[Rfam]
RNA sequence: AGUUGGCUUAAUCUCAGCUGGCAACUGUGAGAUGUUCAUAUAAUCCCCACAGUGGUCUCUGGGAUUAUGCUAAAC
Numbered sequence: 001a002g003u004u005g006g007c008u009u010a011a012u013c014u015c016a017g018c019u020g021g022c023a024a025c026u027g028u029g030a031g032a033u034g035u036u037c038a039u040a041u042a043a044u045c046c047c048c049a050c051a052g053u054g055g056u057c058u059c060u061g062g063g064a065u066u067a068u069g070c071u072a073a074a075c
Stems, first nucleotide, its partner, number of pairs: 003073005009067009020057003023053001026051004031046001
Overview:
This 75-nucleotide RNA sequence from Phyllostomus discolor belongs to the Rfam family "mir-216 microRNA precursor family". Rfam 15.1 lists 1,667 matches to the family in 655 species. Its family is annotated with RISC complex and miRNA-mediated post-transcriptional gene silencing in the Gene Ontology. The family is grouped with related families in Rfam's "mir-216 clan". The match comes from Rfam's covariance-model search (80 bits). For this family Rfam cites "Identification of novel chicken microRNAs and analysis of their genomic organization" (Shao et al., Gene, 2008).